[Rfam]
RNA sequence: GCCACCUUAGCUCAGUCGGUAGAGCACUUCACUCGUAAUGAAGGGGUCGCGAGUUCGAUUCUCGCAGGUGGCU
Dot-bracket structure: (((((((..((((........)))).(((((.......))))).....(((((.......)))))))))))).
RNA: tRNA